[Rfam]
RNA sequence: CCGUUCAACUUGUUCCUCCGUGCAAGACGUACAUUGAGGGGAGCUACGGGAG
Numbered sequence: 001c002c003g004u005u006c007a008a009c010u011u012g013u014u015c016c017u018c019c020g021u022g023c024a025a026g027a028c029g030u031a032c033a034u035u036g037a038g039g040g041g042a043g044c045u046a047c048g049g050g051a052g
Stems, first nucleotide, its partner, number of pairs: 001049004012044007
RNA: THF-II riboswitch (folE RNA)